[Rfam]
A member of the RNA family "Glycine riboswitch aptamer" from Thalassobacter sp. 16PALIMAR09, 87 nucleotides long. Rfam's curators write: This family represents the bacterial glycine riboswitch. The organism belongs to Thalassobacter, within Bacteria.
RNA sequence: GCGCAUCGCACGGGAGAAUCUGCACCCGCAGUGCCGAAGGAGCAACCGCCCCGGUAAACUCUCAGGCCCAAGGACCGUGUGACGAUA
Numbered sequence: 001g002c003g004c005a006u007c008g009c010a011c012g013g014g015a016g017a018a019u020c021u022g023c024a025c026c027c028g029c030a031g032u033g034c035c036g037a038a039g040g041a042g043c044a045a046c047c048g049c050c051c052c053g054g055u056a057a058a059c060u061c062u063c064a065g066g067c068c069c070a071a072g073g074a075c076c077g078u079g080u081g082a083c084g085a086u087a
Stems, first nucleotide, its partner, number of pairs: 006082008020031004033067003036063002040061003046054002